[Rfam]
RNA sequence: CUUCACGAGAUGCGGCGCGAAGCUCCGACUUGCCGCACACCAACCCGAAAGCGUUCCCCGGGUGGUUCGGAUGCCGAAGCGGCCCCUACGAGAAGUAUGGGCAAGUACGCCCC
Numbered sequence: 001c002u003u004c005a006c007g008a009g010a011u012g013c014g015g016c017g018c019g020a021a022g023c024u025c026c027g028a029c030u031u032g033c034c035g036c037a038c039a040c041c042a043a044c045c046c047g048a049a050a051g052c053g054u055u056c057c058c059c060g061g062g063u064g065g066u067u068c069g070g071a072u073g074c075c076g077a078a079g080c081g082g083c084c085c086c087u088a089c090g091a092g093a094a095g096u097a098u099g100g101g102c103a104a105g106u107a108c109g110c111c112c113c
Base pairs, nucleotide, nucleotide: 001079002078003077004076009038011037012036013035014034015033016032021030022029039066040065041064044062045061046060047056048055082102083101084100085099087097088096089095
Shown here is a 113-nucleotide sequence from Hoyosella rhizosphaerae, a member of the family "SAM (S-adenosyl methionine) riboswitch aptamer". The match comes from Rfam's covariance-model search (63 bits). SAM-IV is a mRNA element that regulates gene expression via direct sensing of S-adenosylmethionine (SAM or AdoMet). SAM-IV riboswitches share conserved nucleotide positions with the previously described SAM-I riboswitches sequence analysis and molecular recognition experiments suggest that SAM-I and SAM-IV riboswitches share similar ligand binding sites, but have different scaffolds.